[Rfam]
Shown here is a 128-nucleotide sequence from Hibiscus syriacus, a member of the family "U11 spliceosomal RNA". The family's RNA type in Rfam is spliceosomal small nuclear RNA. A search with the family's covariance model found it, with a score of 76 bits. The source organism's lineage runs through Eukaryota, Streptophytina, Euphyllophyta, rosids and Hibiscus. Clan: U1 clan.

RNA sequence: UAAAAGGGUCGGUUGGCUAAAUAUGCCACGCCCACCCUCGUUUGGUGGGUGCCGUAUGGCUAUCAAGACAUAUGGCCGACACAAUUUGUGGAAUCCUACAGGGUUGGCUCGCUCGGCCGACCCUCCAU
Numbered sequence: 001u002a003a004a005a006g007g008g009u010c011g012g013u014u015g016g017c018u019a020a021a022u023a024u025g026c027c028a029c030g031c032c033c034a035c036c037c038u039c040g041u042u043u044g045g046u047g048g049g050u051g052c053c054g055u056a057u058g059g060c061u062a063u064c065a066a067g068a069c070a071u072a073u074g075g076c077c078g079a080c081a082c083a084a085u086u087u088g089u090g091g092a093a094u095c096c097u098a099c100a101g102g103g104u105u106g107g108c109u110c111g112c113u114c115g116g117c118c119g120a121c122c123c124u125c126c127a128u
Base pairs, nucleotide, nucleotide: 008080009079010078011077012076014028015027016026017025029051030050031049032048033047034046035045036044052075053074054073055072056071057070058069100124101123102122103121104120105119106118107117108116109115